[Rfam]
The family of this 65-nucleotide RNA sequence from Chelonoidis abingdonii is "Small nucleolar RNA SNORD42". The family's consensus secondary structure was predicted with PFOLD. Its family is annotated with RNA processing and nucleolus in the Gene Ontology.
RNA sequence: GUGCAAAUGAUGGAAAAUGACUUCAACUGAGUUCAGUGAUGUUUUCAAAGGAACCACUGAUGCAC
Number, nucleotide and partner (000 for none) at each position: 001g065002u064003g063004c062005a061006a000007a000008u000009g000010a000011u000012g000013g000014a000015a000016a000017a000018u000019g000020a000021c000022u000023u000024c000025a000026a000027c000028u000029g000030a000031g000032u000033u000034c000035a000036g000037u000038g000039a000040u000041g000042u000043u000044u000045u000046c000047a000048a000049a000050g000051g000052a000053a000054c000055c000056a000057c000058u000059g000060a000061u005062g004063c003064a002065c001
A search with the family's covariance model found it, with a score of 61 bits. Rfam's curators write: snoRNA U42 is found in intron 3 of the ribosomal protein L23a (RPL23a) gene in humans and is also present in mice.